Fluoride riboswitch aptamer (crcB RNA motif): a 74-nucleotide sequence from Candidatus Izimoplasma sp. HR2. Rfam links the family to the GO terms response to fluoride and positive regulation of gene expression. The family's consensus secondary structure is taken from published work. The organism belongs to Candidatus Izemoplasma, within Bacteria.
RNA sequence: AUAAUAUUUGGGAAUGAUGUUCUCCCUUAGUUAAUUCUAAAACCGCAUUUAGUGCUGAUGACUUCUACCUAUAU
Numbered sequence: 001a002u003a004a005u006a007u008u009u010g011g012g013a014a015u016g017a018u019g020u021u022c023u024c025c026c027u028u029a030g031u032u033a034a035u036u037c038u039a040a041a042a043c044c045g046c047a048u049u050u051a052g053u054g055c056u057g058a059u060g061a062c063u064u065c066u067a068c069c070u071a072u073a074u
Base pairs, nucleotide, nucleotide: 010026011025012024013023016065017064019062020061021060045055046054047053